RNA: TPP riboswitch aptamer (THI element)
Organism: Faecalibacterium sp. CAG:74
RNA sequence: AUCAUCCGCGAUGGGAGCUGUGGGCGAGGGCUGCACGGCUGAGAGGGCAUUUUGCCGACCAUUUGAACCUGUGUAGGUCAUCCUACCGUAGGGACAGCGGAGGGACACGCGC
Numbered sequence: 001a002u003c004a005u006c007c008g009c010g011a012u013g014g015g016a017g018c019u020g021u022g023g024g025c026g027a028g029g030g031c032u033g034c035a036c037g038g039c040u041g042a043g044a045g046g047g048c049a050u051u052u053u054g055c056c057g058a059c060c061a062u063u064u065g066a067a068c069c070u071g072u073g074u075a076g077g078u079c080a081u082c083c084u085a086c087c088g089u090a091g092g093g094a095c096a097g098c099g100g101a102g103g104g105a106c107a108c109g110c111g112c
Stems, first nucleotide, its partner, number of pairs: 006100004011062004017039005046056004068092004073086004